[Rfam]
This 93-nucleotide RNA from Rhamnella rubrinervis belongs to the Rfam family "Small nucleolar RNA snoR8a". Rfam links the family to the GO terms RNA processing and nucleolus.
Nucleotides: 093
Base pairs, nucleotide, nucleotide: 003093004092006090007089008088009087
Number, partner (000 for none) and nucleotide at each position: 001000g002000g003093g004092g005000u006090g007089g008088c009087u010000g011000u012000g013000a014000u015000u016000a017000g018000a019000a020000a021000c022000u023000a024000u025000a026000a027000u028000u029000c030000a031000u032000c033000g034000u035000u036000c037000u038000g039000a040000a041000u042000g043000c044000a045000a046000a047000u048000u049000u050000g051000g052000g053000c054000a055000u056000g057000a058000c059000a060000g061000a062000c063000u064000c065000u066000u067000a068000u069000u070000u071000a072000c073000a074000c075000c076000c077000a078000u079000a080000g081000a082000a083000u084000c085000u086000g087009a088008g089007c090006c091000a092004c093003u